Nucleotides: 114
Stems, first nucleotide, its partner, number of pairs: 007101004012065003016060001017033005041059004070095004076089004
Number, partner (000 for none) and nucleotide at each position: 001000a002000u003000a004000u005000g006000g007101g008100a009099a010098u011000a012065c013064g014063g015000g016060a017033g018032c019031u020030c021029g022000a023000g024000c025000g026000a027000a028000u029021c030020g031019g032018g033017c034000u035000g036000a037000g038000a039000g040000u041059g042058c043057a044056g045000c046000u047000a048000a049000u050000g051000a052000a053000c054000c055000g056044c057043u058042g059041c060016u061000g062000a063014c064013c065012g066000g067000g068000a069000a070095u071094c072093u073092g074000a075000u076089c077088u078087g079086g080000a081000u082000a083000a084000u085000g086079c087078c088077a089076g090000c091000g092073u093072a094071g095070a096000g097000a098010a099009u100008u101007c102000a103000a104000g105000u106000c107000c108000u109000u110000c111000u112000a113000u114000g